[Rfam]
This 420-nucleotide RNA from Halapricum sp. CBA1109 belongs to the Rfam family "Archaeal RNase P".
Rfam classes the family as a ribozyme.
The match comes from Rfam's covariance-model search (140 bits).
Its Rfam clan is "RNaseP clan".

RNA sequence: GGCAGCGGGAGCCCGGCCCCCGUGCCCCUCGCGGGGCAUGAGGAAAGUCCCCCCACCGUCCGGGCAGGUGACCGGGCGCAAGCCCGGGGCGGGAGACCGCCGGCACUGGAACAGAAACGACACCGCACUCCGCGACCAAUGACGUGCGCGACGCCCGACUGACGAAGGCGACGCCGGCCGCCGCCCAAAGGCGGCCGCGCCGGACCGCCGAGAAAGGAACGGCAAGCUAACCCACAGAGGGUGCGUCCCGGCUUCGCCGGAACGUGGCGGACGGGCCACUGGCCCGCCCGUCGACCGGAGUGAACGGAUGGAACGGCGAAUCCUCACCGGUGCAAGUCCGUCCCGUAUGGUAGCCCGGACACGGGACGGACGCCCAGCCGAAUGCCGGGCCGAACAGAAGGGGGCUUACUCCCCGCAGCC
Numbered sequence: 001g002g003c004a005g006c007g008g009g010a011g012c013c014c015g016g017c018c019c020c021c022g023u024g025c026c027c028c029u030c031g032c033g034g035g036g037c038a039u040g041a042g043g044a045a046a047g048u049c050c051c052c053c054c055a056c057c058g059u060c061c062g063g064g065c066a067g068g069u070g071a072c073c074g075g076g077c078g079c080a081a082g083c084c085c086g087g088g089g090c091g092g093g094a095g096a097c098c099g100c101c102g103g104c105a106c107u108g109g110a111a112c113a114g115a116a117a118c119g120a121c122a123c124c125g126c127a128c129u130c131c132g133c134g135a136c137c138a139a140u141g142a143c144g145u146g147c148g149c150g151a152c153g154c155c156c157g158a159c160u161g162a163c164g165a166a167g168g169c170g171a172c173g174c175c176g177g178c179c180g181c182c183g184c185c186c187a188a189a190g191g192c193g194g195c196c197g198c199g200c201c202g203g204a205c206c207g208c209c210g211a212g213a214a215a216g217g218a219a220c221g222g223c224a225a226g227c228u229a230a231c232c233c234a235c236a237g238a239g240g241g242u243g244c245g246u247c248c249c250g251g252c253u254u255c256g257c258c259g260g261a262a263c264g265u266g267g268c269g270g271a272c273g274g275g276c277c278a279c280u281g282g283c284c285c286g287c288c289c290g291u292c293g294a295c296c297g298g299a300g301u302g303a304a305c306g307g308a309u310g311g312a313a314c315g316g317c318g319a320a321u322c323c324u325c326a327c328c329g330g331u332g333c334a335a336g337u338c339c340g341u342c343c344c345g346u347a348u349g350g351u352a353g354c355c356c357g358g359a360c361a362c363g364g365g366a367c368g369g370a371c372g373c374c375c376a377g378c379c380g381a382a383u384g385c386c387g388g389g390c391c392g393a394a395c396a397g398a399a400g401g402g403g404g405c406u407u408a409c410u411c412c413c414c415g416c417a418g419c420c
Stems, first nucleotide, its partner, number of pairs: 001420003005416005010410002012389006021040008045407003049404005054332004059359006067328005072087005088101005102323002107319001109317001123307003126302007336371009